A member of the RNA family "tRNA" from Colletotrichum trifolii, 85 nucleotides long. Pairs were carried over by alignment from the consensus structure, which is taken from published work. Rfam 15.1 lists 5,335,975 matches to the family in 14,413 species. The source organism's lineage runs through Eukaryota, Fungi, sordariomyceta, Glomerellaceae and Colletotrichum orbiculare species complex. The match comes from Rfam's covariance-model search (50 bits).
RNA sequence: GGCCUGCUGGCGAAAUGGCAUCGCGUCAGAUUUCGGCUUCCUAGUCACACUCUGAAGAUUGUAGGUUCGAUCCCUACGUAGGUCG
Numbered sequence: 001g002g003c004c005u006g007c008u009g010g011c012g013a014a015a016u017g018g019c020a021u022c023g024c025g026u027c028a029g030a031u032u033u034c035g036g037c038u039u040c041c042u043a044g045u046c047a048c049a050c051u052c053u054g055a056a057g058a059u060u061g062u063a064g065g066u067u068c069g070a071u072c073c074c075u076a077c078g079u080a081g082g083u084c085g
Stems, first nucleotide, its partner, number of pairs: 001084007010024004026055005061077005